[Rfam]
RNA sequence: AUCGUUCAAUCUACAUUGUAGAUCGGAAGUAAGUUUAAAACUGAAGGAACGCGCA
Numbered sequence: 001a002u003c004g005u006u007c008a009a010u011c012u013a014c015a016u017u018g019u020a021g022a023u024c025g026g027a028a029g030u031a032a033g034u035u036u037a038a039a040a041c042u043g044a045a046g047g048a049a050c051g052c053g054c055a
Base pairs, nucleotide, nucleotide: 003051004050005049006048007047009023010022011021012020013019026052032042033041034040
RNA: Glutamine riboswitch aptamer (glnA leader)